The record is an 86-nucleotide RNA sequence from Hordeum vulgare, which matches "mir-877 microRNA precursor family" in Rfam. For this family Rfam cites "Many novel mammalian microRNA candidates identified by extensive cloning and RAKE analysis" (Berezikov et al., Genome Res, 2006). The organism belongs to Hordeum vulgare, within Eukaryota. A search with the family's covariance model found it, with a score of 48 bits.
[Rfam]
RNA sequence: GAGGAGGAGAGGAGGAGGAGGAGAAGGAGAAGGAGGAGAAGACCUUUUCCUUCUUCUCCUCCUUCUCCUCCUCUUCCUCCUCCUUC
Numbered sequence: 001g002a003g004g005a006g007g008a009g010a011g012g013a014g015g016a017g018g019a020g021g022a023g024a025a026g027g028a029g030a031a032g033g034a035g036g037a038g039a040a041g042a043c044c045u046u047u048u049c050c051u052u053c054u055u056c057u058c059c060u061c062c063u064u065c066u067c068c069u070c071c072u073c074u075u076c077c078u079c080c081u082c083c084u085u086c
Stems, first nucleotide, its partner, number of pairs: 004082006012076002015073001017071010028060001036058007
Dot-bracket structure: ...((((((..((.(.((((((((((.(.......(((((((.........))))))).).)))))))))).).))))))))....